[Rfam]
RNA sequence: ACAACGGCUCUUUUAAGAGCCACCCACCUCUUUACUAAAGACGGUUG
Dot-bracket structure: .....((((((....))))))..........................